[Rfam]
RNA sequence: GGAAGCAUGGCCGAGUGGUUAAGGCGCGGGAUUUAAGCUUAUAAGCUUCCCCGUUCAGUAAUGUAUCGUGGGUUCGAACCCCACUGCUUCCA
Numbered sequence: 001g002g003a004a005g006c007a008u009g010g011c012c013g014a015g016u017g018g019u020u021a022a023g024g025c026g027c028g029g030g031a032u033u034u035a036a037g038c039u040u041a042u043a044a045g046c047u048u049c050c051c052c053g054u055u056c057a058g059u060a061a062u063g064u065a066u067c068g069u070g071g072g073u074u075c076g077a078a079c080c081c082c083a084c085u086g087c088u089u090c091c092a
Base pairs, nucleotide, nucleotide: 001091002090003089004088005087006086007085010025011024012023027053028052029051030050068084069083070082071081072080
tRNA: a 92-nucleotide RNA sequence from Botryobasidium botryosum. Pairs were carried over by alignment from the consensus structure, which is taken from published work. NCBI's taxonomy places the organism under Eukaryota, Basidiomycota, Cantharellales, Botryobasidiaceae, Botryobasidium botryosum. It is annotated as a transfer RNA.